[Rfam]
RNA: Guanidine-II riboswitch aptamer (mini-ykkC)
Organism: Mesorhizobium sp. Root172
RNA sequence: GCGCGGGGACGACCCCGUGCUUCUCCCAAAAAUCAGGUCGGGACGACCCGC
Numbered sequence: 001g002c003g004c005g006g007g008g009a010c011g012a013c014c015c016c017g018u019g020c021u022u023c024u025c026c027c028a029a030a031a032a033u034c035a036g037g038u039c040g041g042g043a044c045g046a047c048c049c050g051c
Base pairs, nucleotide, nucleotide: 001020002019003018004017005016006015007014008013039050040049041048042047